[Rfam]
RNA: Cauldobacter sRNA CC3552
Organism: Brevundimonas variabilis
RNA sequence: GGGGGCGGCGACGCCCCCCGACCAGGACCGGAGCAAUCCGGUCUGUCGCCCCCGCGCCUCAUUCUCGAUGAUGCCACUUCAAGGCGGCCCGCAAGGGCCGCCU
Numbered sequence: 001g002g003g004g005g006c007g008g009c010g011a012c013g014c015c016c017c018c019c020g021a022c023c024a025g026g027a028c029c030g031g032a033g034c035a036a037u038c039c040g041g042u043c044u045g046u047c048g049c050c051c052c053c054g055c056g057c058c059u060c061a062u063u064c065u066c067g068a069u070g071a072u073g074c075c076a077c078u079u080c081a082a083g084g085c086g087g088c089c090c091g092c093a094a095g096g097g098c099c100g101c102c103u
Base pairs, nucleotide, nucleotide: 001053002052003051004050005049006048007047008046009045010044012020013019026043027042028041029040030039031038032037082103083102084101085100086099087098088097089096090095